[Rfam]
RNA sequence: UUUAAGUGCAAUCAUGAGUUUCGCCCAACUUUAAUCAUCUGUUUUAUUUGAACUUUUUAUAAAUAGUAUUUUUAUUGUUAUGAGAUUAUAAAAUUUAAAUAAGACGGAUGAUUAAAGUUGGACACGAAAACUCAUGGCUACACUUACA
Numbered sequence: 001u002u003u004a005a006g007u008g009c010a011a012u013c014a015u016g017a018g019u020u021u022c023g024c025c026c027a028a029c030u031u032u033a034a035u036c037a038u039c040u041g042u043u044u045u046a047u048u049u050g051a052a053c054u055u056u057u058u059a060u061a062a063a064u065a066g067u068a069u070u071u072u073u074a075u076u077g078u079u080a081u082g083a084g085a086u087u088a089u090a091a092a093a094u095u096u097a098a099a100u101a102a103g104a105c106g107g108a109u110g111a112u113u114a115a116a117g118u119u120g121g122a123c124a125c126g127a128a129a130a131c132u133c134a135u136g137g138c139u140a141c142a143c144u145u146a147c148a
Stems, first nucleotide, its partner, number of pairs: 025121023
Dot-bracket structure: ........................(((((((((((((((((((((((...................................................)))))))))))))))))))))))...........................
RNA: MIR812 microRNA precursor family
Organism: Oryza sativa